[Rfam]
The record is an 85-nucleotide RNA sequence from Terrihalobacillus insolitus, which matches "c-di-GMP-I riboswitch aptamer" in Rfam. A search with the family's covariance model found it, with a score of 85 bits. About the family: GEMM was predicted in a large-scale screen for bacterial structured RNA regulatory elements. Its family is annotated with cyclic-di-GMP binding in the Gene Ontology.
RNA sequence: CUUCGAUAAUGGCAAACUCAUUGAAAGAUGAGGACGCAAAGCUAAGGGUCUAAGGUCUUAGGACUAUGAUCGCCUGGUUACCGAA
Numbered sequence: 001c002u003u004c005g006a007u008a009a010u011g012g013c014a015a016a017c018u019c020a021u022u023g024a025a026a027g028a029u030g031a032g033g034a035c036g037c038a039a040a041g042c043u044a045a046g047g048g049u050c051u052a053a054g055g056u057c058u059u060a061g062g063a064c065u066a067u068g069a070u071c072g073c074c075u076g077g078u079u080a081c082c083g084a085a
Base pairs, nucleotide, nucleotide: 012037013036017032018031019030020029021028022027040079041078042077043076045075046074047073048070049069050068055064056063057062
Dot-bracket structure: ...........((...((((((....))))))...))..((((.((((((....(((....)))...)))..)))))))......